This 355-nucleotide sequence from Phreatobacter aquaticus belongs to the Rfam family "Alphaproteobacteria transfer-messenger RNA".

RNA sequence: GCCCUUUCGCAGUCGCGCCGGCUCGCCUAUAUUCAAGACGCCGGGGCAACCCGGAUACGGCGAUAAACGGUCAUCGUAAUAAGCCUAUCGGACCCGGGGGCAGUACCCGGCGCCUCCACCAGGAGCCCCUUCGCGAAGGGAUUGCUGAUGGGGGCGAAACAGGAUCGACGAGGGUGUAAAGGGUGUUCUUUCGCUCGGCAUGGUUCCGCCGUCAUCGGGCCAUUCAAUAGUUGCCAACGACAACUAUGCUCCGGUGGCCGUUGCCGCGUAAUGCGGUAAUAGUACCGAAAUCAAGCCCUUGCGGGUAGCACCGUAAGGCGGGGUUCGGAGGCACCUGGCAACAGAAGCCUCCACU
Numbered sequence: 001g002c003c004c005u006u007u008c009g010c011a012g013u014c015g016c017g018c019c020g021g022c023u024c025g026c027c028u029a030u031a032u033u034c035a036a037g038a039c040g041c042c043g044g045g046g047c048a049a050c051c052c053g054g055a056u057a058c059g060g061c062g063a064u065a066a067a068c069g070g071u072c073a074u075c076g077u078a079a080u081a082a083g084c085c086u087a088u089c090g091g092a093c094c095c096g097g098g099g100g101c102a103g104u105a106c107c108c109g110g111c112g113c114c115u116c117c118a119c120c121a122g123g124a125g126c127c128c129c130u131u132c133g134c135g136a137a138g139g140g141a142u143u144g145c146u147g148a149u150g151g152g153g154g155c156g157a158a159a160c161a162g163g164a165u166c167g168a169c170g171a172g173g174g175u176g177u178a179a180a181g182g183g184u185g186u187u188c189u190u191u192c193g194c195u196c197g198g199c200a201u202g203g204u205u206c207c208g209c210c211g212u213c214a215u216c217g218g219g220c221c222a223u224u225c226a227a228u229a230g231u232u233g234c235c236a237a238c239g240a241c242a243a244c245u246a247u248g249c250u251c252c253g254g255u256g257g258c259c260g261u262u263g264c265c266g267c268g269u270a271a272u273g274c275g276g277u278a279a280u281a282g283u284a285c286c287g288a289a290a291u292c293a294a295g296c297c298c299u300u301g302c303g304g305g306u307a308g309c310a311c312c313g314u315a316a317g318g319c320g321g322g323g324u325u326c327g328g329a330g331g332c333a334c335c336u337g338g339c340a341a342c343a344g345a346a347g348c349c350u351c352c353a354c355u
Stems, first nucleotide, its partner, number of pairs: 041054004059195005069188002072185004084174003088171003094110005111156007196211004201222003205219003321336004327352006
By type it is a non-coding RNA gene. The organism belongs to Phreatobacter, within Bacteria. The match comes from Rfam's covariance-model search (304 bits).